The family of this 230-nucleotide RNA sequence from Planococcus lenghuensis is "T-box leader". The match comes from Rfam's covariance-model search (109 bits). The family has 48 seed sequences and 19,395 matches in Rfam 15.1. The source organism's lineage runs through Bacteria, Bacillota, Caryophanales, Caryophanaceae and Planococcus. Uncharged tRNA acts as the effector for transcription antitermination of genes in the T-box leader family. T-boxes are found upstream of many aminoacyl-tRNA synthetase genes and some amino acid biosynthetic genes usually in Gram-positive bacteria. The anticodon of a specific tRNA base pairs to a specifier sequence within the T-box motif, and the NCCA acceptor tail of the tRNA base pairs to a conserved bulge in the T-box antiterminator hairpin. By type it is a cis-regulatory leader.
[Rfam]
RNA sequence: GAUGAAGCAAUGACGGAGACAGUAUCCAUAACAGCUCUGAUAAAGCGAGCCAGGGACAGUGCAAGCCUGGUGACGGCGUUUUGGUGAAUAUCCCUCCUGAGCAGAACCGGUGAACGCACCAGCAGUAACCGGUUCCGUGUACGCCGCGAUAAGGCGAUUGAGUGGCAGUCUGUGUUCAGAUCAAGACUGCAACAAGGGUGGUACCGCGAACUGAGCUCUUCGUCCCUUUU
Numbered sequence: 001g002a003u004g005a006a007g008c009a010a011u012g013a014c015g016g017a018g019a020c021a022g023u024a025u026c027c028a029u030a031a032c033a034g035c036u037c038u039g040a041u042a043a044a045g046c047g048a049g050c051c052a053g054g055g056a057c058a059g060u061g062c063a064a065g066c067c068u069g070g071u072g073a074c075g076g077c078g079u080u081u082u083g084g085u086g087a088a089u090a091u092c093c094c095u096c097c098u099g100a101g102c103a104g105a106a107c108c109g110g111u112g113a114a115c116g117c118a119c120c121a122g123c124a125g126u127a128a129c130c131g132g133u134u135c136c137g138u139g140u141a142c143g144c145c146g147c148g149a150u151a152a153g154g155c156g157a158u159u160g161a162g163u164g165g166c167a168g169u170c171u172g173u174g175u176u177c178a179g180a181u182c183a184a185g186a187c188u189g190c191a192a193c194a195a196g197g198g199u200g201g202u203a204c205c206g207c208g209a210a211c212u213g214a215g216c217u218c219u220u221c222g223u224c225c226c227u228u229u230u
Stems, first nucleotide, its partner, number of pairs: 007102002015097004026084003030080001049071006105134007136148003165190007195227004206223005